Group II catalytic intron D1-D4-4: a 136-nucleotide RNA sequence from Verrucomicrobium spinosum. Rfam links the family to the GO term Group II intron splicing. Rfam's curators put it in the seed alignment. Group II introns are found in rRNA, tRNA and mRNA of organelles in fungi, plants and protists, and also in mRNA in bacteria. The family has 90 seed sequences and 840 matches in Rfam 15.1.

Nucleotides: 136
Base pairs, nucleotide, nucleotide: 020041021040022039023038024037049088050087051086052085054079055078056077057076058075059074064069096111097110098109099108100107113129114128115127
Number, partner (000 for none) and nucleotide at each position: 001000c002000a003000c004000c005000g006000g007000g008000u009000g010000g011000a012000a013000g014000u015000c016000c017000c018000g019000g020041c021040u022039g023038g024037c025000u026000a027000u028000a029000u030000c031000g032000c033000u034000c035000c036000g037024g038023c039022c040021a041020g042000a043000a044000g045000c046000a047000c048000u049088g050087g051086g052085g053000g054079c055078g056077g057076u058075u059074c060000a061000a062000g063000a064069g065000g066000u067000g068000a069064c070000a071000a072000a073000u074059g075058a076057a077056u078055c079054g080000a081000a082000g083000u084000a085052c086051u087050u088049c089000c090000a091000g092000a093000a094000a095000a096111g097110g098109c099108u100107c101000c102000g103000u104000a105000g106000g107100g108099a109098g110097u111096c112000a113129g114128c115127g116000a117000u118000c119000a120000u121000g122000c123000g124000g125000g126000c127115u128114g129113c130000a131000a132000u133000g134000u135000a136000g